[Rfam]
RNA sequence: UGUGUGCGAUGGGCUGGCAGUGUACUGUUAGCUGGUUGGUGUGCAAGUGACAUCAGCUAACACGCAACUGCUAUCUUAUUGCAUUCA
Numbered sequence: 001u002g003u004g005u006g007c008g009a010u011g012g013g014c015u016g017g018c019a020g021u022g023u024a025c026u027g028u029u030a031g032c033u034g035g036u037u038g039g040u041g042u043g044c045a046a047g048u049g050a051c052a053u054c055a056g057c058u059a060a061c062a063c064g065c066a067a068c069u070g071c072u073a074u075c076u077u078a079u080u081g082c083a084u085u086c087a
Stems, first nucleotide, its partner, number of pairs: 001087002004084010015073007022065002027061010040049003
Rfam assigns this 87-nucleotide RNA from Phyllostomus discolor to the family "mir-449 microRNA precursor family". Gene Ontology terms of the family: miRNA-mediated post-transcriptional gene silencing and RISC complex. The match comes from Rfam's covariance-model search (66 bits). For this family Rfam cites "Small RNA expression and strain specificity in the rat" (Linsen et al., BMC Genomics, 2010). The family is grouped with related families in Rfam's "mir-34 clan".